RNA sequence: CAUCUGGGGGGAGGCCCUGACACGCGGUCCUCAUCACUGGUCGCCUUGGACCGCGCCGAGCCACUGGCGAGACCGACCUGCCUCGAUG
Number, nucleotide and partner (000 for none) at each position: 001c088002a087003u086004c085005u000006g082007g081008g000009g079010g078011g077012a000013g062014g061015c060016c000017c000018u000019g000020a000021c000022a000023c055024g054025c053026g052027g051028u050029c049030c000031u000032c000033a000034u000035c000036a000037c000038u000039g074040g073041u070042c069043g068044c067045c066046u000047u000048g000049g029050a028051c027052c026053g025054c024055g023056c000057c000058g000059a000060g015061c014062c013063a000064c000065u000066g045067g044068c043069g042070a041071g000072a000073c040074c039075g000076a000077c011078c010079u009080g000081c007082c006083u000084c000085g004086a003087u002088g001
RNA: c-di-GMP-II-GAG riboswitch aptamer